[Rfam]
RNA sequence: AAGGUAGACGGCUGGCACCUUAUAAGUUCAGUCAAUACAAAGUAAACAAGGAGCCUAGUAUG
Number, nucleotide and partner (000 for none) at each position: 001a021002a020003g019004g018005u000006a000007g000008a000009c000010g033011g032012c031013u030014g029015g028016c000017a000018c004019c003020u002021u001022a000023u000024a000025a000026g000027u000028u015029c014030a013031g012032u011033c010034a000035a000036u000037a000038c000039a000040a000041a000042g000043u000044a000045a000046a000047c000048a000049a000050g000051g000052a000053g000054c000055c000056u000057a000058g000059u000060a000061u000062g000
A member of the RNA family "DUF2815 RNA", 62 nucleotides long. By type it is a small RNA.